[Rfam]
RNA: Eukaryotic large subunit ribosomal RNA, nucleotides 1921 to 2414
Organism: Theileria orientalis
RNA sequence: UAGAAUAAGGUAGAUAAGGGAAGUCGGCAAAAUGGAUCCGUAACUUCGGGACAAGGAUUGGCUCUGAGGGCCGGGCAGCAUGGGGCCUUUGGCGUUCCUCUUAGGUCUUUGAUUAGCUGGUUAUUCGCGAGGGUUUCCGGAUUUUCUUGGACUUUUGAGGAUUUGCUUUUGGUUGGAUUUUUUCCUUCCCGGCUGUAGUGAACGGCUAACUCAGAACUGGAGCGGACAAGGGGAAUCCGACUGUUUAAUUAAAACAUAGCAUUGCGAUGGCUUGAAAAGGUGUUGACGCAAUGUGAUUUCUGCCCAGUGCUCUGAAUGUCAAAGUGAUGAAAUUCAACCAAGCGCGGGUAAACGGCGGGAGUAACUAUGACUCUCUUAAGGUAGCCAAAUGCCUCGUCAUCUAAUUAGUGACGCGCAUGAAUGGAUUAACGAGAUUCCCACUGUCCCUAUCUAUUAUCUAGCGAAACCACAGCCAAGGGAACGGGCUUGGCAAA
Numbered sequence: 001u002a003g004a005a006u007a008a009g010g011u012a013g014a015u016a017a018g019g020g021a022a023g024u025c026g027g028c029a030a031a032a033u034g035g036a037u038c039c040g041u042a043a044c045u046u047c048g049g050g051a052c053a054a055g056g057a058u059u060g061g062c063u064c065u066g067a068g069g070g071c072c073g074g075g076c077a078g079c080a081u082g083g084g085g086c087c088u089u090u091g092g093c094g095u096u097c098c099u100c101u102u103a104g105g106u107c108u109u110u111g112a113u114u115a116g117c118u119g120g121u122u123a124u125u126c127g128c129g130a131g132g133g134u135u136u137c138c139g140g141a142u143u144u145u146c147u148u149g150g151a152c153u154u155u156u157g158a159g160g161a162u163u164u165g166c167u168u169u170u171g172g173u174u175g176g177a178u179u180u181u182u183u184c185c186u187u188c189c190c191g192g193c194u195g196u197a198g199u200g201a202a203c204g205g206c207u208a209a210c211u212c213a214g215a216a217c218u219g220g221a222g223c224g225g226a227c228a229a230g231g232g233g234a235a236u237c238c239g240a241c242u243g244u245u246u247a248a249u250u251a252a253a254a255c256a257u258a259g260c261a262u263u264g265c266g267a268u269g270g271c272u273u274g275a276a277a278a279g280g281u282g283u284u285g286a287c288g289c290a291a292u293g294u295g296a297u298u299u300c301u302g303c304c305c306a307g308u309g310c311u312c313u314g315a316a317u318g319u320c321a322a323a324g325u326g327a328u329g330a331a332a333u334u335c336a337a338c339c340a341a342g343c344g345c346g347g348g349u350a351a352a353c354g355g356c357g358g359g360a361g362u363a364a365c366u367a368u369g370a371c372u373c374u375c376u377u378a379a380g381g382u383a384g385c386c387a388a389a390u391g392c393c394u395c396g397u398c399a400u401c402u403a404a405u406u407a408g409u410g411a412c413g414c415g416c417a418u419g420a421a422u423g424g425a426u427u428a429a430c431g432a433g434a435u436u437c438c439c440a441c442u443g444u445c446c447c448u449a450u451c452u453a454u455u456a457u458c459u460a461g462c463g464a465a466a467c468c469a470c471a472g473c474c475a476a477g478g479g480a481a482c483g484g485g486c487u488u489g490g491c492a493a494a
Stems, first nucleotide, its partner, number of pairs: 001460004009455008018446003035059005044049001060218002063215006069207005075196005081191004085173003091167002098159003103154006111146002115142001117140004123134004219223001231439007238431002242256003259294008270281004298425003302356003307353002309349004314345001317344003325336003357375006376380001396412005473490005